[Rfam]
RNA sequence: AUUAAUAUUUGGCAAACUAUAUGAAAAUAUAGGGCGCAAAACUAUAGGGCCUUGAAAAUGGUAGCCAGCUGCAUAA
Numbered sequence: 001a002u003u004a005a006u007a008u009u010u011g012g013c014a015a016a017c018u019a020u021a022u023g024a025a026a027a028u029a030u031a032g033g034g035c036g037c038a039a040a041a042c043u044a045u046a047g048g049g050c051c052u053u054g055a056a057a058a059u060g061g062u063a064g065c066c067a068g069c070u071g072c073a074u075a076a
Stems, first nucleotide, its partner, number of pairs: 012037002017032006040070001042068002047066002049062003
Dot-bracket structure: ...........((...((((((....))))))...))..(.((...(((((........)))..)))).)......